[Rfam]
A member of the RNA family "Archaeal large subunit ribosomal RNA" from Methanotorris igneus, 369 nucleotides of a longer RNA.

RNA sequence: CGGGGUAAUCCGGUCGAGGGAAGUCGGCAAAUUGGCCCCGUAACUUCGGGAGAAGGGGUGCCAGCGGCCUUGCUUAAAUGCGGGGCUGCUGGUCGCAGUGACCAGGGGGGCCCGACUGUUUAAUAAAAACACAGGUCUUGGCUAGCCCGUAAGGGUGUGUACCAAGGCUGACGCCUGCCCAGUGCUGGUACGUGAAACCCGGGUCCAACCGGGCGAAGCGCCAGUAAACGGCGGGGGUAACUAUAACCCUCUUAAGGUAGCGAAAUUCCUUGUCGGGUAAGUUCCGACCUGCAUGAAUGGCGUAACGAGGCCCCCACUGUCCCCGACCGGAGCCCGGUGAACCUACCGUUCCGGUGCAAAGGCCGGAGA
Numbered sequence: 001c002g003g004g005g006u007a008a009u010c011c012g013g014u015c016g017a018g019g020g021a022a023g024u025c026g027g028c029a030a031a032u033u034g035g036c037c038c039c040g041u042a043a044c045u046u047c048g049g050g051a052g053a054a055g056g057g058g059u060g061c062c063a064g065c066g067g068c069c070u071u072g073c074u075u076a077a078a079u080g081c082g083g084g085g086c087u088g089c090u091g092g093u094c095g096c097a098g099u100g101a102c103c104a105g106g107g108g109g110g111c112c113c114g115a116c117u118g119u120u121u122a123a124u125a126a127a128a129a130c131a132c133a134g135g136u137c138u139u140g141g142c143u144a145g146c147c148c149g150u151a152a153g154g155g156u157g158u159g160u161a162c163c164a165a166g167g168c169u170g171a172c173g174c175c176u177g178c179c180c181a182g183u184g185c186u187g188g189u190a191c192g193u194g195a196a197a198c199c200c201g202g203g204u205c206c207a208a209c210c211g212g213g214c215g216a217a218g219c220g221c222c223a224g225u226a227a228a229c230g231g232c233g234g235g236g237g238u239a240a241c242u243a244u245a246a247c248c249c250u251c252u253u254a255a256g257g258u259a260g261c262g263a264a265a266u267u268c269c270u271u272g273u274c275g276g277g278u279a280a281g282u283u284c285c286g287a288c289c290u291g292c293a294u295g296a297a298u299g300g301c302g303u304a305a306c307g308a309g310g311c312c313c314c315c316a317c318u319g320u321c322c323c324c325g326a327c328c329g330g331a332g333c334c335c336g337g338u339g340a341a342c343c344u345a346c347c348g349u350u351c352c353g354g355u356g357c358a359a360a361g362g363c364c365g366g367a368g369a
Base pairs, nucleotide, nucleotide: 001336002335003334004333009331010330011329012328013327014326015325016324018322019321020320035059036058037057038056039055044049060093061092062091063090064089065088066087067086068085069084070083071082072081073080094098106315107314108313109312110311111310112309113307114306117131118130119129134169135168136167137166138165139164140163141162142159145156146155147154148153172302173301174300175299177232178231179230182229183228184225185224186223187222188221191220192219193218198213199212200211201210202209233251234250235249236248237247238246252256272288273287274286275285276284277283350367351366352365353364354363
Notes
The literature on the family includes a 2002 paper in BMC Bioinformatics by Cannone et al., "The comparative RNA web (CRW) site: an online database of comparative sequence and structure information for ribosomal, intron, and other RNAs". It is one of the family's seed sequences.